The family of this 84-nucleotide RNA sequence from Candidatus Enterovibrio altilux is "RpsF leader". It scores 45 bits against the family's covariance model. For this family Rfam cites "Bacterial RNA motif in the 5' UTR of rpsF interacts with an S6:S18 complex" (Fu et al., RNA, 2014). From the family's description: Conserved and widely distributed to many bacterial species RNA structure. NCBI's taxonomy places the organism under Bacteria, Pseudomonadati, Pseudomonadota, Vibrionaceae, Enterovibrio.

RNA sequence: UCAGUCUUUUACUUUCGUUCCUUGCUUCUUUUGGACGACUGGGCCAAUGUUGGAAGCUGAAUAAACCGUAAGGAGCAACCUAUG
Numbered sequence: 001u002c003a004g005u006c007u008u009u010u011a012c013u014u015u016c017g018u019u020c021c022u023u024g025c026u027u028c029u030u031u032u033g034g035a036c037g038a039c040u041g042g043g044c045c046a047a048u049g050u051u052g053g054a055a056g057c058u059g060a061a062u063a064a065a066c067c068g069u070a071a072g073g074a075g076c077a078a079c080c081u082a083u084g
Stems, first nucleotide, its partner, number of pairs: 017076007024057006032046003